[Rfam]
RNA sequence: UUAAACCACUAGGGGUGCAUAGUUGCUGAGAGAGGCCUAAUUUGGUGCCUUAACCCUUUUACCUGAUCUAGAUAAUACUAGCGGAGGGAAGUGGAUCGAAGGACCU
Numbered sequence: 001u002u003a004a005a006c007c008a009c010u011a012g013g014g015g016u017g018c019a020u021a022g023u024u025g026c027u028g029a030g031a032g033a034g035g036c037c038u039a040a041u042u043u044g045g046u047g048c049c050u051u052a053a054c055c056c057u058u059u060u061a062c063c064u065g066a067u068c069u070a071g072a073u074a075a076u077a078c079u080a081g082c083g084g085a086g087g088g089a090a091g092u093g094g095a096u097c098g099a100a101g102g103a104c105c106u
Stems, first nucleotide, its partner, number of pairs: 006094005011057004017026003033050004062087003068081004

Rfam assigns this 106-nucleotide RNA from Alkalihalobacillus alcalophilus to the family "TPP riboswitch aptamer (THI element)".